[Rfam]
RNA sequence: CAGUGAUGACAGCUCUUUUUGAAUUUGUCUAGUAGGUCUUCCGAUUUUUACCAGAAGGCCCUC
Numbered sequence: 001c002a003g004u005g006a007u008g009a010c011a012g013c014u015c016u017u018u019u020u021g022a023a024u025u026u027g028u029c030u031a032g033u034a035g036g037u038c039u040u041c042c043g044a045u046u047u048u049u050a051c052c053a054g055a056a057g058g059c060c061c062u063c
Base pairs, nucleotide, nucleotide: 035060036059037058038057039056040055041054043052045050
RNA: U7 small nuclear RNA